[Rfam]
RNA sequence: CGGGGAUAGGCAGACUCCCCGUGAGACGGUGCCUGUCCAAGCUCUGC
Numbered sequence: 001c002g003g004g005g006a007u008a009g010g011c012a013g014a015c016u017c018c019c020c021g022u023g024a025g026a027c028g029g030u031g032c033c034u035g036u037c038c039a040a041g042c043u044c045u046g047c
Stems, first nucleotide, its partner, number of pairs: 001021006010047005025037005